About this RNA:
This 134-nucleotide sequence from Plantactinospora sp. KBS50 belongs to the Rfam family "c-di-AMP riboswitch aptamer (ydaO/yuaA leader)". It scores 103 bits against the family's covariance model. NCBI's taxonomy places the organism under Bacteria, Bacillati, Actinomycetota, Micromonosporaceae, Plantactinospora. The pairing is the family consensus, mapped onto this sequence.
RNA sequence: GGCUCGACACCGCCGAAUCGUUCCGACGAACCGGGGAACCAGGUCCCAGGGGUGAAUCCGCGGAUGCCGCGGUAGGGCGACUCUCUUCCGCCCGAACCCGUCAGCUAACCCGGUAGGCGGGAAGGGGAGAAGGA
Numbered sequence: 001g002g003c004u005c006g007a008c009a010c011c012g013c014c015g016a017a018u019c020g021u022u023c024c025g026a027c028g029a030a031c032c033g034g035g036g037a038a039c040c041a042g043g044u045c046c047c048a049g050g051g052g053u054g055a056a057u058c059c060g061c062g063g064a065u066g067c068c069g070c071g072g073u074a075g076g077g078c079g080a081c082u083c084u085c086u087u088c089c090g091c092c093c094g095a096a097c098c099c100g101u102c103a104g105c106u107a108a109c110c111c112g113g114u115a116g117g118c119g120g121g122a123a124g125g126g127g128a129g130a131a132g133g134a
Base pairs, nucleotide, nucleotide: 011119012118013117014116018029019028020027030114031113032112033111034110035109040049050099051098052097058072059071060070061069075093076092077091078090